[Rfam]
RNA sequence: GAGAAAUUGAGGAACAGAGCAUCCAAUCUGUUCGCUCAAACCAUGACAGGAGGUACAAAGAUGAUGAUGGCCGAGAUAUCGUUUCAGUCGUCCCUUGUUCAGAUGGACGAUUCGAUUGUUGCUUGUCCACAU
Numbered sequence: 001g002a003g004a005a006a007u008u009g010a011g012g013a014a015c016a017g018a019g020c021a022u023c024c025a026a027u028c029u030g031u032u033c034g035c036u037c038a039a040a041c042c043a044u045g046a047c048a049g050g051a052g053g054u055a056c057a058a059a060g061a062u063g064a065u066g067a068u069g070g071c072c073g074a075g076a077u078a079u080c081g082u083u084u085c086a087g088u089c090g091u092c093c094c095u096u097g098u099u100c101a102g103a104u105g106g107a108c109g110a111u112u113c114g115a116u117u118g119u120u121g122c123u124u125g126u127c128c129a130c131a132u
Stems, first nucleotide, its partner, number of pairs: 007039005013032006069128002072125004078116004087111007095103002